RNA sequence: CGGAGAGAGAGGGUUUUGAACCCUCAGUACAAAUAACUCGUACAACGGAUUAG
Numbered sequence: 001c002g003g004a005g006a007g008a009g010a011g012g013g014u015u016u017u018g019a020a021c022c023c024u025c026a027g028u029a030c031a032a033a034u035a036a037c038u039c040g041u042a043c044a045a046c047g048g049a050u051u052a053g
Stems, first nucleotide, its partner, number of pairs: 009025005027043004032038001
RNA: Plastid-psbl-rps4 3UTR RNA